[Rfam]
RNA: traJ-II RNA
RNA sequence: GGGCAGGAUAUGUGAACGUAGCUACACGGCAAGCCGUGUAUCUACGUUCACCUAUCCCCUUAUUCGCACCUUCGGCGCUCAACGGGGUUCCCUGCUCUGCGAGGCC
Number, nucleotide and partner (000 for none) at each position: 001g097002g096003g095004c094005a093006g092007g091008a000009u000010a000011u000012g051013u050014g049015a048016a047017c046018g000019u044020a043021g042022c000023u000024a039025c038026a037027c036028g035029g034030c000031a000032a000033g000034c029035c028036g027037u026038g025039u024040a000041u000042c021043u020044a019045c000046g017047u016048u015049c014050a013051c012052c000053u000054a000055u000056c087057c086058c085059c084060u000061u000062a000063u000064u000065c000066g078067c077068a000069c075070c074071u000072u000073c000074g070075g069076c000077g067078c066079u000080c000081a000082a000083c000084g059085g058086g057087g056088u000089u000090c000091c007092c006093u005094g004095c003096u002097c001098u000099g000100c000101g000102a000103g000104g000105c000106c000